A member of the RNA family "L13-Bacteroidia ribosomal protein leader", 76 nucleotides long. It is annotated as a cis-regulatory leader.
[Rfam]
RNA sequence: GGGGAUACACUUAGAGUCCCCAAGAUAUGGUGUGUUAAUAGCAUGCCCUGUGGCCGGGGUAUGUGGUUAGUGAAUC
Numbered sequence: 001g002g003g004g005a006u007a008c009a010c011u012u013a014g015a016g017u018c019c020c021c022a023a024g025a026u027a028u029g030g031u032g033u034g035u036u037a038a039u040a041g042c043a044u045g046c047c048c049u050g051u052g053g054c055c056g057g058g059g060u061a062u063g064u065g066g067u068u069a070g071u072g073a074a075u076c
Stems, first nucleotide, its partner, number of pairs: 001021006035070005041064009